[Rfam]
RNA: T-box leader
Organism: Halalkalibacter krulwichiae
RNA sequence: UUAAGAGCGAUGAUGAAAAAGAGUAGGCGAUAGGAAUGUUUCAGAGAGCGGAUGGUUGCUGUGAGUCCGUACGGGAAUAUCGUUGAAUGGAUUUUGGAGCUUCUAGGUUGAAAGAAUAGUAGGCCUGGCGGGUGUCUUACCGUUAAAAGAGACUAUGUAUCGAAACGGCUUCACAGUUUCCGUACAGACUAAGUGCGUUUGCUAGAUGUAAACGAAUGAAGGUGGCACCACGGGUUACUCGUCCUUUUU
Dot-bracket structure: ......((......((((.......((((((.....(((........((((((...........))))))))).....)))))).......))))...))..(((((((............)))))))(((........))).....................................................(((((((.....)))))))....((((.......(((((...)))))))))...